int-alpA RNA: a 65-nucleotide RNA from Enterobacter phage Tyrion. The family's RNA type in Rfam is small RNA. Acidobacteria (1 example), Planctomycetes (1 example), Proteobacteria. The organism belongs to Uetakevirus, within Viruses. The base pairs follow the family's consensus structure, which is taken from published work.
RNA sequence: UCAGUGGCUAGGGUAGCUCCCGAAAAGCGGCAUCGUCACCGCCCGCCACUGAUAACCUGACGAGC
Numbered sequence: 001u002c003a004g005u006g007g008c009u010a011g012g013g014u015a016g017c018u019c020c021c022g023a024a025a026a027g028c029g030g031c032a033u034c035g036u037c038a039c040c041g042c043c044c045g046c047c048a049c050u051g052a053u054a055a056c057c058u059g060a061c062g063a064g065c
Base pairs, nucleotide, nucleotide: 001052002051003050004049005048006047007046008045011021012020013019027042028041029040030039034064036062